RNA sequence: GAAAUUCCGUCCGGACCGAUCCUCCUCCCCGGUCCGCGCGGAUUUAAGGGACGCGGCCCUAUCCUCCUCCCGGGGUUCGCGUCACCGAAAUGAGACACCCGCUGCUCCUCCCGCAGCGGGUGUUUUCG
Numbered sequence: 001g002a003a004a005u006u007c008c009g010u011c012c013g014g015a016c017c018g019a020u021c022c023u024c025c026u027c028c029c030c031g032g033u034c035c036g037c038g039c040g041g042a043u044u045u046a047a048g049g050g051a052c053g054c055g056g057c058c059c060u061a062u063c064c065u066c067c068u069c070c071c072g073g074g075g076u077u078c079g080c081g082u083c084a085c086c087g088a089a090a091u092g093a094g095a096c097a098c099c100c101g102c103u104g105c106u107c108c109u110c111c112c113g114c115a116g117c118g119g120g121u122g123u124u125u126u127c128g
Stems, first nucleotide, its partner, number of pairs: 007041003012036006050083007058075002095123011